[Rfam]
RNA sequence: GUACGAGGAAAGGAGGUGGUUCGGAACAUGUAUGGACACCGGACGUCGGAGGUGGCUGCGGGCUAGUGGCCCGUCGCCCACUCAGUGCGGUGCCGGACCCGCGUGCACGAGAUGUACGCAGCCGGCCAAUCCAACGCAGUCACCCGACCCGCGAGUCGCCGGUACGUCCGGCCGGCCCCUCCUCAGGGAGGACCAGACUCGCGGGUCGUCUGCG
Numbered sequence: 001g002u003a004c005g006a007g008g009a010a011a012g013g014a015g016g017u018g019g020u021u022c023g024g025a026a027c028a029u030g031u032a033u034g035g036a037c038a039c040c041g042g043a044c045g046u047c048g049g050a051g052g053u054g055g056c057u058g059c060g061g062g063c064u065a066g067u068g069g070c071c072c073g074u075c076g077c078c079c080a081c082u083c084a085g086u087g088c089g090g091u092g093c094c095g096g097a098c099c100c101g102c103g104u105g106c107a108c109g110a111g112a113u114g115u116a117c118g119c120a121g122c123c124g125g126c127c128a129a130u131c132c133a134a135c136g137c138a139g140u141c142a143c144c145c146g147a148c149c150c151g152c153g154a155g156u157c158g159c160c161g162g163u164a165c166g167u168c169c170g171g172c173c174g175g176c177c178c179c180u181c182c183u184c185a186g187g188g189a190g191g192a193c194c195a196g197a198c199u200c201g202c203g204g205g206u207c208g209u210c211u212g213c214g
Stems, first nucleotide, its partner, number of pairs: 016059005061127004066122002069119002145208013158176006
Dot-bracket structure: ...............(((((..................................))))).((((.((.((...............................................)).)).)))).................(((((((((((((((((((.......))))))...................)))))))))))))......